Rfam assigns this 145-nucleotide RNA from Gossypium schwendimanii to the family "MIR7502 microRNA precursor family". The match comes from Rfam's covariance-model search (81 bits). The organism belongs to Gossypium, within Eukaryota. Rfam links the family to the GO terms miRNA-mediated post-transcriptional gene silencing and RISC complex.

[Rfam]
RNA sequence: UGUUAAAAUUUUCAUCCAUUUGUACUAUUAAAACUUGGUCCUUGUACGUCAACAUGGGGUACACGUGACACACCACGUGUAUUUGUCUGGUUAUUCUGUUAGCCAAGCCAAUUUUUAACAGCAGAAAUGAAUGAAGUUUUUUACA
Numbered sequence: 001u002g003u004u005a006a007a008a009u010u011u012u013c014a015u016c017c018a019u020u021u022g023u024a025c026u027a028u029u030a031a032a033a034c035u036u037g038g039u040c041c042u043u044g045u046a047c048g049u050c051a052a053c054a055u056g057g058g059g060u061a062c063a064c065g066u067g068a069c070a071c072a073c074c075a076c077g078u079g080u081a082u083u084u085g086u087c088u089g090g091u092u093a094u095u096c097u098g099u100u101a102g103c104c105a106a107g108c109c110a111a112u113u114u115u116u117a118a119c120a121g122c123a124g125a126a127a128u129g130a131a132u133g134a135a136g137u138u139u140u141u142u143a144c145a
Base pairs, nucleotide, nucleotide: 002144003143005141006140007139008138010136011135012134013133014132015131018128019127020126021125023123025121026120028118029117030116031115032114033113